[Rfam]
RNA: U4 spliceosomal RNA
RNA sequence: AGCUUUGCGCAGUGGCAGUAUCGUAGCCAAUGAGGUUUAUCCGAGGCGCGAUUAUUGCUAAUAGAUAUUUUGAUUAAAUUUAUAUAGUUAGCAUUUGAUUCUUUACUGGCAAUGUUUGCUUAUAAUUAUUCUCUUUUUUCUCCUUUAAAG
Dot-bracket structure: ...................(((((.(((.....((.....))..))))))))...............................(((((.((((((...............)))))).)).)))............((((.......))))